Background: The record is a 38-nucleotide RNA from Treponema denticola, which matches "Selenocysteine insertion sequence 4" in Rfam. A reference for the family is Graentzdoerffer et al. (2001), "Molecular analysis of the grd operon coding for genes of the glycine reductase and of the thioredoxin system from Clostridium sticklandii", Arch Microbiol.

RNA sequence: GGAACCUGUACACGUUGCGGUGCAACGAUUUGCAAAGA
Dot-bracket structure: ............((((((...))))))...........
Numbered sequence: 001g002g003a004a005c006c007u008g009u010a011c012a013c014g015u016u017g018c019g020g021u022g023c024a025a026c027g028a029u030u031u032g033c034a035a036a037g038a
Stems, first nucleotide, its partner, number of pairs: 013027006

Overview:
Gene Ontology term of the family: selenocysteine incorporation. It scores 41 bits against the family's covariance model. Lineage of the source: Bacteria > Spirochaetia > Treponemataceae > Treponema > Treponema denticola.